[Rfam]
RNA sequence: UGAAGUCCCACAGGAGCGACCUGAGACCACAUGGAUCAGGCAUCUGCACCUUCCGAAACCAGAUUACCACUUUGUGGGCGAUUUAGCUUAGGGUUCUGGCAAAGUUGCAAUCCUUUGGUGCUCAUGUGUUCUCAGGUCGCCCCUGCUGGUCUUUC
Number, nucleotide and partner (000 for none) at each position: 001u000002g000003a000004a000005g000006u000007c149008c148009c000010a000011c145012a144013g143014g142015a000016g140017c139018g138019a137020c000021c000022u000023g133024a132025g131026a130027c000028c128029a127030c126031a125032u124033g123034g122035a000036u000037c000038a000039g000040g000041c000042a000043u000044c000045u000046g000047c000048a000049c000050c000051u000052u000053c000054c000055g000056a000057a000058a000059c000060c000061a000062g000063a000064u000065u000066a000067c000068c000069a000070c000071u000072u000073u000074g000075u000076g000077g000078g000079c000080g000081a000082u000083u000084u000085a000086g000087c000088u000089u000090a000091g000092g000093g000094u000095u000096c000097u000098g000099g000100c000101a000102a000103a000104g000105u000106u000107g000108c000109a000110a000111u000112c000113c000114u000115u000116u000117g000118g000119u000120g000121c000122u034123c033124a032125u031126g030127u029128g028129u000130u026131c025132u024133c023134a000135g000136g000137u019138c018139g017140c016141c000142c014143c013144u012145g011146c000147u000148g008149g007150u000151c000152u000153u000154u000155c000